[Rfam]
RNA sequence: UGUCACCCGCGCAACUGGCGACAGAGAUGGAUGACCAUCGGGGAGCGCGGGCGAAACGAACGCCGCUCGCCUGGGCACAAACA
Numbered sequence: 001u002g003u004c005a006c007c008c009g010c011g012c013a014a015c016u017g018g019c020g021a022c023a024g025a026g027a028u029g030g031a032u033g034a035c036c037a038u039c040g041g042g043g044a045g046c047g048c049g050g051g052c053g054a055a056a057c058g059a060a061c062g063c064c065g066c067u068c069g070c071c072u073g074g075g076c077a078c079a080a081a082c083a
Base pairs, nucleotide, nucleotide: 003054004053006051007050008049009048010047011046012045015042016041017071018070019069020068021067027038028037029036030035062076063075064074

This 83-nucleotide sequence from Ciceribacter lividus belongs to the Rfam family "ZMP/ZTP riboswitch aptamer (pfl RNA motif)". The organism belongs to Ciceribacter, within Bacteria. Rfam 15.1 lists 3,295 matches to the family in 2,545 species. A reference for the family is Jones and Ferre-D'Amare (2015), "Recognition of the bacterial alarmone ZMP through long-distance association of two RNA subdomains", Nat Struct Mol Biol.